[Rfam]
RNA sequence: UAAUGUAAAAGGCAGCGUUAGAGAAAUCUAAGCGUACGCAAAGCUAUAGGGCCUGUAAAAUGGUAGCCAGUUGUCAUU
Numbered sequence: 001u002a003a004u005g006u007a008a009a010a011g012g013c014a015g016c017g018u019u020a021g022a023g024a025a026a027u028c029u030a031a032g033c034g035u036a037c038g039c040a041a042a043g044c045u046a047u048a049g050g051g052c053c054u055g056u057a058a059a060a061u062g063g064u065a066g067c068c069a070g071u072u073g074u075c076a077u078u
Stems, first nucleotide, its partner, number of pairs: 012039002017033001018031005042072004049068002051064003
Overview
The record is a 78-nucleotide RNA sequence from Haloplasma contractile, which matches "c-di-GMP-I riboswitch aptamer" in Rfam. GEMM was predicted in a large-scale screen for bacterial structured RNA regulatory elements. Lineage of the source: Bacteria > Bacillati > Haloplasmataceae > Haloplasma > Haloplasma contractile. Pairs were carried over by alignment from the consensus structure, which is taken from published work.